Rfam assigns this 166-nucleotide part of an RNA from Trichoplax sp. H2 to the family "Eukaryotic small subunit ribosomal RNA". Clan: SSU clan. Rfam links the family to the GO terms ribosome and structural constituent of ribosome.

RNA sequence: CCGCCCGUCGCUACUACCGAUUGGAUGGUUUAGUGAGGUCUUCGGAUUGGUGAUGGCGUGACUUUACGGUUGUGCCAAUUAUCGAGAAGUUGAUCAAACUUGAUCAUCUAGAGGAAGUAAAAGUCGUAACAAGGUUUCCGUAGGUGAACCUGCGGAAGGAUCAUUA
Numbered sequence: 001c002c003g004c005c006c007g008u009c010g011c012u013a014c015u016a017c018c019g020a021u022u023g024g025a026u027g028g029u030u031u032a033g034u035g036a037g038g039u040c041u042u043c044g045g046a047u048u049g050g051u052g053a054u055g056g057c058g059u060g061a062c063u064u065u066a067c068g069g070u071u072g073u074g075c076c077a078a079u080u081a082u083c084g085a086g087a088a089g090u091u092g093a094u095c096a097a098a099c100u101u102g103a104u105c106a107u108c109u110a111g112a113g114g115a116a117g118u119a120a121a122a123g124u125c126g127u128a129a130c131a132a133g134g135u136u137u138c139c140g141u142a143g144g145u146g147a148a149c150c151u152g153c154g155g156a157a158g159g160a161u162c163a164u165u166a
Stems, first nucleotide, its partner, number of pairs: 001133001003130001006126002009123001012119004017114002021110001023109008032100003037095004043089001047085005052079001054077004059072004135158010